RNA: Guanidine-II riboswitch aptamer (mini-ykkC)
Organism: Pseudooceanicola marinus
RNA sequence: AGGCGAGGACGACUUCGCCCGGCCACACGGCCUGCACACGGGACGGCCCGA
Dot-bracket structure: .(((((((....)))))))...................((((....)))).